[Rfam]
About this RNA:
A member of the RNA family "Group I catalytic intron" from Gnomoniopsis smithogilvyi, 374 nucleotides long. Group I catalytic introns are large self-splicing ribozymes. They catalyse their own excision from mRNA, tRNA and rRNA precursors in a wide range of organisms.

RNA sequence: AUGAUAAGGUUAAAUACAGCCUUUUUGUGGAAGUGAACCUUCUGCUUUAAACCAUCAAAUUGCGGGAAAGCCCUAAAGCAAUCUUAACUAACCAAGGAUAGUAAUAUACCUUGGGGCGCAGGUAAUGACUCGCGAUAUAGUAAAAUCAAGAUUGAUUUACAGUUGUAGAAUGGGUAAUCCGCAGCCAAGCACCACUAUGAAAAGACAGCGUACCUUUUGCAUAAGUGAAUCCGCUAAUGUAAGAUUCAUUAUAAGGUAUGUAAAGUUCUUUAAAGUAAAGGUGUGCAGUUCAUCGACUAGAUGUUGGUUGGUGUUAUUAGGGCGCAGCCUUAAUAAUGCUUAAGAUAUAGUCAAGCCUCAUUCGAAAGAAUGCA
Numbered sequence: 001a002u003g004a005u006a007a008g009g010u011u012a013a014a015u016a017c018a019g020c021c022u023u024u025u026u027g028u029g030g031a032a033g034u035g036a037a038c039c040u041u042c043u044g045c046u047u048u049a050a051a052c053c054a055u056c057a058a059a060u061u062g063c064g065g066g067a068a069a070g071c072c073c074u075a076a077a078g079c080a081a082u083c084u085u086a087a088c089u090a091a092c093c094a095a096g097g098a099u100a101g102u103a104a105u106a107u108a109c110c111u112u113g114g115g116g117c118g119c120a121g122g123u124a125a126u127g128a129c130u131c132g133c134g135a136u137a138u139a140g141u142a143a144a145a146u147c148a149a150g151a152u153u154g155a156u157u158u159a160c161a162g163u164u165g166u167a168g169a170a171u172g173g174g175u176a177a178u179c180c181g182c183a184g185c186c187a188a189g190c191a192c193c194a195c196u197a198u199g200a201a202a203a204g205a206c207a208g209c210g211u212a213c214c215u216u217u218u219g220c221a222u223a224a225g226u227g228a229a230u231c232c233g234c235u236a237a238u239g240u241a242a243g244a245u246u247c248a249u250u251a252u253a254a255g256g257u258a259u260g261u262a263a264a265g266u267u268c269u270u271u272a273a274a275g276u277a278a279a280g281g282u283g284u285g286c287a288g289u290u291c292a293u294c295g296a297c298u299a300g301a302u303g304u305u306g307g308u309u310g311g312u313g314u315u316a317u318u319a320g321g322g323c324g325c326a327g328c329c330u331u332a333a334u335a336a337u338g339c340u341u342a343a344g345a346u347a348u349a350g351u352c353a354a355g356c357c358u359c360a361u362u363c364g365a366a367a368g369a370a371u372g373c374a
Base pairs, nucleotide, nucleotide: 006023007022008021009020010019011018029039030038050309051308052307053306054305056303057302061183062182063181064180065179066178071174072173073172184289185288189284190283191282192281196277197276198275293353295352296351297350298349299348311339312338313337314336315335316334317333318332319331320330321329322328323327359372360371361370362369363368